Shown here is a 114-nucleotide RNA sequence from Patiria miniata, a member of the family "Small nucleolar RNA U6-53/MBII-28". Taxonomically the source falls in Patiria (Eukaryota, Eumetazoa, Bilateria, Eleutherozoa). Its family is annotated with RNA processing and nucleolus in the Gene Ontology. For this family Rfam cites "RNomics: an experimental approach that identifies 201 candidates for novel, small, non-messenger RNAs in mouse" (Huttenhofer et al., EMBO J, 2001). The family has 25 seed sequences and 780 matches in Rfam 15.1.
RNA sequence: GUGAAAUGAUGAGUUAUGUCAUGCUAAUACUGAGUGCUCACACGUCGGUCUCUAUGACGACGUGCUGGAGCUCAAUGAGUUGAAACACUUCUCAGAAAGUAUAAUCUGAUCACA
Number, nucleotide and partner (000 for none) at each position: 001g113002u112003g111004a110005a000006a000007u000008g000009a000010u000011g000012a000013g000014u000015u000016a000017u000018g000019u000020c000021a000022u000023g000024c000025u000026a000027a000028u000029a000030c000031u000032g000033a000034g000035u000036g000037c000038u000039c000040a000041c000042a000043c062044g061045u060046c059047g058048g000049u000050c000051u000052c000053u000054a000055u000056g000057a000058c047059g046060a045061c044062g043063u000064g000065c000066u000067g000068g000069a000070g000071c000072u000073c000074a000075a000076u000077g000078a000079g000080u000081u000082g000083a000084a000085a000086c000087a000088c000089u000090u000091c000092u000093c000094a000095g000096a000097a000098a000099g000100u000101a000102u000103a000104a000105u000106c000107u000108g000109a000110u004111c003112a002113c001114a000